The record is a 122-nucleotide RNA from Pteropus alecto, which matches "Small nucleolar RNA SNORA28" in Rfam. The family is grouped with related families in Rfam's "SNORA28 clan". ACA28 is a member of the H/ACA class of snoRNA that guide the sites of modification of uridines to pseudouridines. Its family is annotated with RNA processing and nucleolus in the Gene Ontology.

RNA sequence: AAACAACAUUCUGUGGCAGAUGAUAAAAACUGAAACAAUUUGAGCUUGCUAUAGCAAGAAAGUCUAACCUAUUCCAGUGUUCUCUCCUCCUUGAGAAAAGCCAUUAUAUAAACAUAAGCAGU
Numbered sequence: 001a002a003a004c005a006a007c008a009u010u011c012u013g014u015g016g017c018a019g020a021u022g023a024u025a026a027a028a029a030c031u032g033a034a035a036c037a038a039u040u041u042g043a044g045c046u047u048g049c050u051a052u053a054g055c056a057a058g059a060a061a062g063u064c065u066a067a068c069c070u071a072u073u074c075c076a077g078u079g080u081u082c083u084c085u086c087c088u089c090c091u092u093g094a095g096a097a098a099a100g101c102c103a104u105u106a107u108a109u110a111a112a113c114a115u116a117a118g119c120a121g122u
Stems, first nucleotide, its partner, number of pairs: 009044003012037003017032003021028001060115001062113002065110002070108003077101002083096004